[Rfam]
RNA sequence: GUAAUCAAGUAGAAGCCAUCCGCUUCUCACCUUACAACGCAUAAGCUGUUCGUGAGGUUGAUAUGGAUUGUAGCAUUCUUUUUGUGUGCUAUCGGGCGGGUGGAAUUUUCCACUCGCAUUUUAUAUUGCUU
Numbered sequence: 001g002u003a004a005u006c007a008a009g010u011a012g013a014a015g016c017c018a019u020c021c022g023c024u025u026c027u028c029a030c031c032u033u034a035c036a037a038c039g040c041a042u043a044a045g046c047u048g049u050u051c052g053u054g055a056g057g058u059u060g061a062u063a064u065g066g067a068u069u070g071u072a073g074c075a076u077u078c079u080u081u082u083u084g085u086g087u088g089c090u091a092u093c094g095g096g097c098g099g100g101u102g103g104a105a106u107u108u109u110c111c112a113c114u115c116g117c118a119u120u121u122u123a124u125a126u127u128g129c130u131u
Stems, first nucleotide, its partner, number of pairs: 011027006029058003036050003039046002096117009
Rfam assigns this 131-nucleotide RNA sequence from Methylomusa anaerophila to the family "Ribosomal protein L20 leader". Rfam classes the family as a cis-regulatory leader. Pairs were carried over by alignment from the consensus structure, which was predicted with CMfinder. Rfam's curators write: This family is a putative r-protein leader autoregulatory structure found in B. subtilis and other low-GC Gram-positive bacteria.